[Rfam]
RNA sequence: CGUGGGUGCAUUGUAGUUGCAUUGCACGUAAUGUAACGGUGCAGUGUUCCUUCAGUGCAAUCCGUG
Dot-bracket structure: ((((.((((((((.((..(.(((((((...........))))))).)..)).)))))))..)))))

Record summary:
Rfam assigns this 66-nucleotide RNA sequence from Rhynchophorus ferrugineus to the family "mir-33 microRNA precursor family". Taxonomically the source falls in Rhynchophorus (Eukaryota, Mandibulata, Endopterygota, Curculionidae). It scores 67 bits against the family's covariance model. The base pairs follow the family's consensus structure, which was predicted with PFOLD.